[Rfam]
RNA sequence: GCCAAGAUGCUGCCUUUAUCUGCAUUUACACCUGCACCUUCUUCCUCUUUACUUUUGUUUUAGAUCUCAUCGCUCACACGAAUGGAAAUUAGAUUCAAGAAUAGGAAAAGGAGGUGCAGAUGUGUAUGCAGGUGAAUGCUAUUUUGGC
Numbered sequence: 001g002c003c004a005a006g007a008u009g010c011u012g013c014c015u016u017u018a019u020c021u022g023c024a025u026u027u028a029c030a031c032c033u034g035c036a037c038c039u040u041c042u043u044c045c046u047c048u049u050u051a052c053u054u055u056u057g058u059u060u061u062a063g064a065u066c067u068c069a070u071c072g073c074u075c076a077c078a079c080g081a082a083u084g085g086a087a088a089u090u091a092g093a094u095u096c097a098a099g100a101a102u103a104g105g106a107a108a109a110g111g112a113g114g115u116g117c118a119g120a121u122g123u124g125u126a127u128g129c130a131g132g133u134g135a136a137u138g139c140u141a142u143u144u145u146g147g148c
Stems, first nucleotide, its partner, number of pairs: 001148009012139002015136011027124004032119012